[Rfam]
RNA sequence: AAUUCUUGGGUUUUUAACACUUGUGUUCUACUACUGGAAUUUUCGUCCUCGAAGGUUUCAGCAAAUUAUAAAGCCAGAGAGCCAGUCAGAGGGCGCUACCAUGCAAACUAGGGCUGGCUACUCUUGCACAGAAUCACCUUUCUAUAAUAACCAGUGCAAGAAGGGUUAUUAUACCAUUUAAUGUGCCGAGGCCACGCGGAGUACGAUCGAGGGUACAGCACAAUCUCAACAUUUGUUUAAUUUAACAACUCAAACACUGAAGAAAGUCAAAGGACUGUACUACUUUGUAGGUGUAGCAGUCGCCCAGUGGGAAAGCGUCAGUGUUUGUGUGGUUGAGUGGGGAACAAAUUAGGGAAAUUAAAUUGGCUUAAAUGGGGGAGGGAGC
Number, nucleotide and partner (000 for none) at each position: 001a000002a000003u000004u000005c000006u000007u000008g000009g000010g000011u000012u000013u000014u000015u000016a000017a000018c000019a000020c000021u000022u000023g000024u000025g000026u000027u000028c000029u000030a000031c000032u000033a000034c000035u000036g059037g058038a057039a056040u055041u054042u053043u052044c051045g050046u000047c000048c000049u000050c045051g044052a043053a042054g041055g040056u039057u038058u037059c036060a000061g000062c000063a000064a000065a000066u000067u000068a000069u000070a000071a000072a000073g000074c000075c000076a124077g123078a122079g121080a119081g118082c117083c116084a115085g114086u113087c112088a000089g000090a109091g108092g000093g000094c000095g104096c103097u000098a000099c000100c000101a000102u000103g096104c095105a000106a000107a000108c091109u090110a000111g000112g087113g086114c085115u084116g083117g082118c081119u080120a000121c079122u078123c077124u076125u000126g000127c000128a000129c000130a000131g000132a000133a000134u000135c000136a000137c381138c380139u379140u378141u377142c376143u173144a172145u171146a170147a169148u168149a167150a166151c165152c164153a000154g000155u000156g000157c000158a000159a000160g000161a000162a000163g000164g152165g151166u150167u149168a148169u147170u146171a145172u144173a143174c366175c365176a364177u362178u361179u360180a359181a358182u357183g221184u220185g219186c218187c000188g000189a000190g000191g214192c213193c212194a000195c209196g208197c205198g204199g000200a000201g000202u000203a000204c198205g197206a000207u000208c196209g195210a000211g000212g193213g192214u191215a000216c000217a000218g186219c185220a184221c183222a000223a000224u000225c000226u000227c000228a000229a000230c000231a349232u348233u347234u346235g345236u344237u343238u000239a000240a338241u337242u336243u335244a334245a333246c332247a000248a330249c329250u000251c000252a326253a325254a324255c323256a322257c321258u320259g319260a318261a000262g000263a000264a000265a000266g000267u000268c000269a000270a000271a000272g000273g301274a300275c299276u298277g297278u296279a000280c290281u289282a288283c287284u000285u000286u000287g283288u282289a281290g280291g000292u000293g000294u000295a000296g278297c277298a276299g275300u274301c273302g000303c311304c310305c309306a000307g000308u000309g305310g304311g303312a000313a000314a000315g000316c000317g000318u260319c259320a258321g257322u256323g255324u254325u253326u252327g000328u000329g249330u248331g000332g246333u245334u244335g243336a242337g241338u240339g000340g000341g000342g000343a237344a236345c235346a234347a233348a232349u231350u000351a000352g000353g000354g000355a000356a000357a182358u181359u180360a179361a178362a177363u000364u176365g175366g174367c000368u000369u000370a000371a000372a000373u000374g000375g000376g142377g141378g140379a139380g138381g137382g000383a000384g000385c000

About this RNA: Shown here is a 385-nucleotide RNA from Deltacoronavirus pycnonoti, a member of the family "Deltacoronavirus 3'UTR". Rfam links the family to the GO term viral RNA genome replication. There are two smaller hairpins and the hypervariable region (HVR) present in the 3' UTR of deltacoronaviruses. Clan: Coronavirus 3' UTR. The sequence is in the family's curated seed alignment.